[Rfam]
RNA: SAM riboswitch aptamer (S box leader)
Organism: Gottschalkia purinilytica
RNA sequence: CUCUUAUCGAGAGUGGUGGAGGGAACUGGCCCUGAGAAACCCGGCAACCCAAAGGAAACUUCCUUGAAGGUGCUAAAUCCAGCAGGUAUAUCCUGAAAGAUAAGAU
Numbered sequence: 001c002u003c004u005u006a007u008c009g010a011g012a013g014u015g016g017u018g019g020a021g022g023g024a025a026c027u028g029g030c031c032c033u034g035a036g037a038a039a040c041c042c043g044g045c046a047a048c049c050c051a052a053a054g055g056a057a058a059c060u061u062c063c064u065u066g067a068a069g070g071u072g073c074u075a076a077a078u079c080c081a082g083c084a085g086g087u088a089u090a091u092c093c094u095g096a097a098a099g100a101u102a103a104g105a106u
Stems, first nucleotide, its partner, number of pairs: 002105007013042001015041003021032003026082004043074004048070002050066003078098001083095004